[Rfam]
RNA sequence: AAGAAAUGGUUUACCGUCCCACAUACAUUUUGAGUAUGUAUGUGGGAUGGUAAACCGCUUCUU
Numbered sequence: 001a002a003g004a005a006a007u008g009g010u011u012u013a014c015c016g017u018c019c020c021a022c023a024u025a026c027a028u029u030u031u032g033a034g035u036a037u038g039u040a041u042g043u044g045g046g047a048u049g050g051u052a053a054a055c056c057g058c059u060u061c062u063u
Base pairs, nucleotide, nucleotide: 002062003061004060005059007057008056009055010054011053012052013051014050015049016048017047018046019045020044021043022042023041024040025039026038027037028036
RNA: mir-299 microRNA precursor family